A member of the RNA family "GcvB RNA" from Leminorella richardii, 202 nucleotides long. For this family Rfam cites "The gcvB gene encodes a small untranslated RNA involved in expression of the dipeptide and oligopeptide transport systems in Escherichia coli" (Urbanowski et al., Mol Microbiol, 2000). Its family is annotated with mRNA binding and regulation of gene expression in the Gene Ontology. The gcvB gene encodes a small untranslated RNA involved in expression of the dipeptide and oligopeptide transport systems in Escherichia coli. Included several unknown homologues in alignment (Bateman A pers obs). It base-pairs with SorC. This interaction triggers the degradation of GcvB by RNase E, alleviating the GcvB-mediated mRNA repression of other amino acid-related transport and metabolic genes. It scores 96 bits against the family's covariance model.
RNA sequence: ACUUCCUGAGCCGGAACGAAAAUGUGUUUUUGAACGAAAGCGCAUUUUGGCUUUGUGGUUGUGAUGUUGUGUUUGCUAAUUGCCUGACAGGUGUUGGGCACGGUCGUUAGCUUCCUACCCCAUAGGAUUAGCGAUUAAUUCUGAACAUUUACCCUAUUUAUCAUAGUCUUUAUGUAGCACCGCUCUGGCGGUGCUUUUUUUU
Numbered sequence: 001a002c003u004u005c006c007u008g009a010g011c012c013g014g015a016a017c018g019a020a021a022a023u024g025u026g027u028u029u030u031u032g033a034a035c036g037a038a039a040g041c042g043c044a045u046u047u048u049g050g051c052u053u054u055g056u057g058g059u060u061g062u063g064a065u066g067u068u069g070u071g072u073u074u075g076c077u078a079a080u081u082g083c084c085u086g087a088c089a090g091g092u093g094u095u096g097g098g099c100a101c102g103g104u105c106g107u108u109a110g111c112u113u114c115c116u117a118c119c120c121c122a123u124a125g126g127a128u129u130a131g132c133g134a135u136u137a138a139u140u141c142u143g144a145a146c147a148u149u150u151a152c153c154c155u156a157u158u159u160a161u162c163a164u165a166g167u168c169u170u171u172a173u174g175u176a177g178c179a180c181c182g183c184u185c186u187g188g189c190g191g192u193g194c195u196u197u198u199u200u201u202u
Stems, first nucleotide, its partner, number of pairs: 009052004015048002021046006030037002081100007102136009145175004176195008